[Rfam]
RNA sequence: UCCUCGUUCGAAGAAUCGCAAUCAAAGCUUACAUACCGACAACCUUCUCAAGAUGGUUUGUCAUUGUACACACAGCUUUGGGAGAAAGUCCCCGGACGUCCAUCUUCACUGAAGAAUGGGUUACGCGGAAACGCGCCGCCAUAGAAGCACCACCAGCGGCCCAUCCCCCUUCACUUCAACCUCCACCCCUCUCUACCCGUCUGAGGCAUCGUUUGCACUCCUUCUUGGACACGCCGUCUGCUCGGAUCUUGCUGGCUUGGAAGACAUCCUUCACGGGAUGCCUGGCAACAGGGAGCGAGGAUAUGAGCUCUGCUUCCUCGUUCUUCGCAGUGUUUCGCUGCAGUGUGCGGGUCGAGUAGGAGGAGAUGCUGCAGAAUUUGCGGUAGGAAGACAAGGUGGGCUUACAGGUUGUGGGGGUUGGGAUCUUUCGUCGCGGUUAAUAGAUAUGCGAUUGCCAGUCUUUGUCCGCAGACGGAUGGAACGGGUAACUCAAUGGGGCUCAUUCUCGAGGCGAGG
Numbered sequence: 001u002c003c004u005c006g007u008u009c010g011a012a013g014a015a016u017c018g019c020a021a022u023c024a025a026a027g028c029u030u031a032c033a034u035a036c037c038g039a040c041a042a043c044c045u046u047c048u049c050a051a052g053a054u055g056g057u058u059u060g061u062c063a064u065u066g067u068a069c070a071c072a073c074a075g076c077u078u079u080g081g082g083a084g085a086a087a088g089u090c091c092c093c094g095g096a097c098g099u100c101c102a103u104c105u106u107c108a109c110u111g112a113a114g115a116a117u118g119g120g121u122u123a124c125g126c127g128g129a130a131a132c133g134c135g136c137c138g139c140c141a142u143a144g145a146a147g148c149a150c151c152a153c154c155a156g157c158g159g160c161c162c163a164u165c166c167c168c169c170u171u172c173a174c175u176u177c178a179a180c181c182u183c184c185a186c187c188c189c190u191c192u193c194u195a196c197c198c199g200u201c202u203g204a205g206g207c208a209u210c211g212u213u214u215g216c217a218c219u220c221c222u223u224c225u226u227g228g229a230c231a232c233g234c235c236g237u238c239u240g241c242u243c244g245g246a247u248c249u250u251g252c253u254g255g256c257u258u259g260g261a262a263g264a265c266a267u268c269c270u271u272c273a274c275g276g277g278a279u280g281c282c283u284g285g286c287a288a289c290a291g292g293g294a295g296c297g298a299g300g301a302u303a304u305g306a307g308c309u310c311u312g313c314u315u316c317c318u319c320g321u322u323c324u325u326c327g328c329a330g331u332g333u334u335u336c337g338c339u340g341c342a343g344u345g346u347g348c349g350g351g352u353c354g355a356g357u358a359g360g361a362g363g364a365g366a367u368g369c370u371g372c373a374g375a376a377u378u379u380g381c382g383g384u385a386g387g388a389a390g391a392c393a394a395g396g397u398g399g400g401c402u403u404a405c406a407g408g409u410u411g412u413g414g415g416g417g418u419u420g421g422g423a424u425c426u427u428u429c430g431u432c433g434c435g436g437u438u439a440a441u442a443g444a445u446a447u448g449c450g451a452u453u454g455c456c457a458g459u460c461u462u463u464g465u466c467c468g469c470a471g472a473c474g475g476a477u478g479g480a481a482c483g484g485g486u487a488a489c490u491c492a493a494u495g496g497g498g499c500u501c502a503u504u505c506u507c508g509a510g511g512c513g514a515g516g
Stems, first nucleotide, its partner, number of pairs: 002516006008509004014453006022082001023080006038062005044056001087500002090498004124135004365425003372421001374419002377416001378414004393403003455485002458482002
This 516-nucleotide RNA from Hortaea werneckii belongs to the Rfam family "RNase MRP".